RNA sequence: CCUCUCUUUCUUUGCAGGGACCAGGUAUGUAUGUUCCCUGUUAUGUCUGGAGGCAGAGGGAAAGGGCUUCAGUCCCCUGGGAAUCAUGUCUUUGGUGCCGGUGGUUUCCUGUCUGCCAAUUCUAUCCUCAAGCACUGGGACACAA
Numbered sequence: 001c002c003u004c005u006c007u008u009u010c011u012u013u014g015c016a017g018g019g020a021c022c023a024g025g026u027a028u029g030u031a032u033g034u035u036c037c038c039u040g041u042u043a044u045g046u047c048u049g050g051a052g053g054c055a056g057a058g059g060g061a062a063a064g065g066g067c068u069u070c071a072g073u074c075c076c077c078u079g080g081g082a083a084u085c086a087u088g089u090c091u092u093u094g095g096u097g098c099c100g101g102u103g104g105u106u107u108c109c110u111g112u113c114u115g116c117c118a119a120u121u122c123u124a125u126c127c128u129c130a131a132g133c134a135c136u137g138g139g140a141c142a143c144a145a
Stems, first nucleotide, its partner, number of pairs: 001053005015040006022033002025030001080136002084132001100117005

Background: This 145-nucleotide RNA sequence from Nomascus leucogenys belongs to the Rfam family "Small nucleolar RNA SNORA57". Its family is annotated with RNA processing and nucleolus in the Gene Ontology. On this family, see Vitali et al., Nucleic Acids Res 2003: "Identification of 13 novel human modification guide RNAs".